Rfam assigns this 229-nucleotide sequence to the family "IS605-orfB-I RNA". It is one of the family's seed sequences. Rfam classes the family as a small RNA. Pairs were carried over by alignment from the consensus structure, which is taken from published work.
Nucleotides: 229
Base pairs, nucleotide, nucleotide: 001051002050003049004048005047006046008044010040011039012038013037014036018033019032020031021030022028065136066135067134068133069132070131071130072129078124079123080122081121082120083119104116105115140157141156142155143154144153146226147225148224149223150222151221152176159170160169161168181219182218183217184216185215186214187213188212189211190209191208
Number, partner (000 for none) and nucleotide at each position: 001051c002050c003049u004048g005047u006046a007000u008044a009000a010040a011039c012038g013037g014036c015000u016000a017000a018033c019032u020031a021030c022028c023000c024000a025000a026000g027000a028022g029000a030021g031020u032019a033018g034000c035000u036014g037013u038012c039011g040010u041000c042000a043000c044008u045000u046006u047005a048004u049003g050002g051001g052000c053000u054000u055000a056000a057000a058000u059000u060000u061000a062000g063000a064000a065136c066135g067134a068133u069132a070131u071130a072129g073000u074000a075000a076000a077000g078124u079123c080122u081121g082120u083119u084000g085000c086000c087000a088000a089000a090000g091000g092000c093000u094000u095000a096000a097000g098000c099000u100000a101000c102000u103000u104116u105115g106000u107000a108000g109000u110000a111000a112000g113000a114000g115105u116104g117000a118000u119083a120082a121081c122080a123079g124078g125000a126000u127000a128000g129072c130071u131070a132069u133068a134067u135066u136065g137000g138000a139000a140157u141156g142155g143154u144153u145000c146226g147225c148224c149223g150222u151221a152176u153144g154143a155142c156141c157140g158000a159170g160169a161168u162000u163000g164000a165000a166000a167000u168161a169160u170159c171000u172000a173000a174000a175000c176152a177000u178000g179000a180000u181219g182218a183217g184216a185215u186214a187213a188212u189211a190209g191208a192000g193000c194000g195000g196000a197000a198000u199000c200000a201000c202000u203000u204000c205000u206000a207000c208191u209190c210000a211189u212188a213187u214186u215185a216184u217183u218182u219181u220000u221151u222150a223149c224148g225147g226146u227000u228000c229000c